[Rfam]
RNA sequence: CAGAUACAAUGAUGAUAACAUAGUUCAGCAGAAUGUACAAUGAUGAGUACUGCUUUGUCUUUCGCUCCUAUCUGAUGUAUCUG
Numbered sequence: 001c002a003g004a005u006a007c008a009a010u011g012a013u014g015a016u017a018a019c020a021u022a023g024u025u026c027a028g029c030a031g032a033a034u035g036u037a038c039a040a041u042g043a044u045g046a047g048u049a050c051u052g053c054u055u056u057g058u059c060u061u062u063c064g065c066u067c068c069u070a071u072c073u074g075a076u077g078u079a080u081c082u083g
Stems, first nucleotide, its partner, number of pairs: 004080005

Source information
The family of this 83-nucleotide sequence from Alligator mississippiensis is "Small nucleolar RNA snR60/Z15/Z230/Z193/J17". A search with the family's covariance model found it, with a score of 63 bits. The base pairs follow the family's consensus structure.